RNA: Gut-1 RNA
RNA sequence: CAGUUAUAUUCGCCUGACAGCGAGUGAAAUUGUCCUUCGGACAGUGAUAGGAUACUUCGCAUCGUGAUAUUGCCU
Numbered sequence: 001c002a003g004u005u006a007u008a009u010u011c012g013c014c015u016g017a018c019a020g021c022g023a024g025u026g027a028a029a030u031u032g033u034c035c036u037u038c039g040g041a042c043a044g045u046g047a048u049a050g051g052a053u054a055c056u057u058c059g060c061a062u063c064g065u066g067a068u069a070u071u072g073c074c075u
Stems, first nucleotide, its partner, number of pairs: 008025006029045006049065001051063003055059001